[Rfam]
RNA: Human immunodeficiency virus type 1 dimerisation initiation site
RNA sequence: GGACCUGACUUGUUCAAGGGCACAGAGUAAGAGGCAGGGC
Numbered sequence: 001g002g003a004c005c006u007g008a009c010u011u012g013u014u015c016a017a018g019g020g021c022a023c024a025g026a027g028u029a030a031g032a033g034g035c036a037g038g039g040c
Stems, first nucleotide, its partner, number of pairs: 004038004009031007